7SK RNA: a 327-nucleotide sequence from Lophotis ruficrista. The family's RNA type in Rfam is non-coding RNA gene. Pairs were carried over by alignment from the consensus structure, which is taken from published work. Rfam's curators write: 7SK was discovered as an abundant small nuclear RNA in the mid-70s but a possible function has only recently been suggested. A search with the family's covariance model found it, with a score of 283 bits.
RNA sequence: GGAUGUGAGGGCGAUCUGGCUGCGACAUCUGUCACCCCAUCGAUCGCCAGGGUUGAUUCGGCCUAUCUGGUUGGCUAGGCGGGUGUCCCCUUCCUCCCUCACCGCUCUGUGUGCGUCCCUCCCGAAGCUGCACGCUCGGUAGAAGAGGACGACCUUCCCCGAUAGUGCCGUGCCGUUCAGCGGUCAAGGGUAUAAGCUAGCUGCGCUCCUCUGCCACAACCUCCACCCCAACGCAAGGGCCACCGGUAGGAGACGUAGGGUAGGCAAGCUUCCAACACUGCAGAUACAUCCAAGUGAGGCGCUGCACGGGGCAGUCUGUUUUUCUAA
Numbered sequence: 001g002g003a004u005g006u007g008a009g010g011g012c013g014a015u016c017u018g019g020c021u022g023c024g025a026c027a028u029c030u031g032u033c034a035c036c037c038c039a040u041c042g043a044u045c046g047c048c049a050g051g052g053u054u055g056a057u058u059c060g061g062c063c064u065a066u067c068u069g070g071u072u073g074g075c076u077a078g079g080c081g082g083g084u085g086u087c088c089c090c091u092u093c094c095u096c097c098c099u100c101a102c103c104g105c106u107c108u109g110u111g112u113g114c115g116u117c118c119c120u121c122c123c124g125a126a127g128c129u130g131c132a133c134g135c136u137c138g139g140u141a142g143a144a145g146a147g148g149a150c151g152a153c154c155u156u157c158c159c160c161g162a163u164a165g166u167g168c169c170g171u172g173c174c175g176u177u178c179a180g181c182g183g184u185c186a187a188g189g190g191u192a193u194a195a196g197c198u199a200g201c202u203g204c205g206c207u208c209c210u211c212u213g214c215c216a217c218a219a220c221c222u223c224c225a226c227c228c229c230a231a232c233g234c235a236a237g238g239g240c241c242a243c244c245g246g247u248a249g250g251a252g253a254c255g256u257a258g259g260g261u262a263g264g265c266a267a268g269c270u271u272c273c274a275a276c277a278c279u280g281c282a283g284a285u286a287c288a289u290c291c292a293a294g295u296g297a298g299g300c301g302c303u304g305c306a307c308g309g310g311g312c313a314g315u316c317u318g319u320u321u322u323u324c325u326a327a
Stems, first nucleotide, its partner, number of pairs: 001108003005102007013093002018090002024087010035074002037070003042067003046062003117170001119167001121165001122139004127135002140162001142160001147158003200269003206263002209260006221252004228246002294325001296322005301315005